Source information:
The record is a 73-nucleotide RNA sequence from Rodentolepis nana, which matches "HDV ribozyme from F. prausnitzii" in Rfam. Rfam 15.1 lists 3,803 matches to the family in 91 species. Rfam links the family to the GO term catalytic activity. The literature on the family includes a 2009 paper in Science by Webb et al., "Widespread occurrence of self-cleaving ribozymes". A search with the family's covariance model found it, with a score of 50 bits. Pairs were carried over by alignment from the consensus structure, which is taken from published work.
RNA sequence: GGGGUGCGUAAUAGAGUUACCUCCACGUGGUGCACCCUGGGCAACGUAUACUUAUACGGCAAAAAAAGUCUAU
Numbered sequence: 001g002g003g004g005u006g007c008g009u010a011a012u013a014g015a016g017u018u019a020c021c022u023c024c025a026c027g028u029g030g031u032g033c034a035c036c037c038u039g040g041g042c043a044a045c046g047u048a049u050a051c052u053u054a055u056a057c058g059g060c061a062a063a064a065a066a067a068g069u070c071u072a073u
Stems, first nucleotide, its partner, number of pairs: 001038007019031003045058005

Annotation:
Lineage of the source: Eukaryota > Opisthokonta > Protostomia > Eucestoda > Rodentolepis.